The record is a 75-nucleotide RNA sequence from Alligator mississippiensis, which matches "Mammalian CPEB3 ribozyme" in Rfam. Lineage of the source: Eukaryota > Sarcopterygii > Dipnotetrapodomorpha > Sauropsida > Alligator. Pairs were carried over by alignment from the consensus structure, which is taken from published work. The match comes from Rfam's covariance-model search (36 bits).
[Rfam]
RNA sequence: UUCCUAUAAUAGCCAUAGUCAAAGCAUUUAUAUUGCAGCCCCUGUCAGAUUCCAAUGAAUCUGCUAAAUUGUGCU
Numbered sequence: 001u002u003c004c005u006a007u008a009a010u011a012g013c014c015a016u017a018g019u020c021a022a023a024g025c026a027u028u029u030a031u032a033u034u035g036c037a038g039c040c041c042c043u044g045u046c047a048g049a050u051u052c053c054a055a056u057g058a059a060u061c062u063g064c065u066a067a068a069u070u071g072u073g074c075u
Base pairs, nucleotide, nucleotide: 012039013038017075018074019073022070023069024036025035026034046063047062048061049060050059051058052057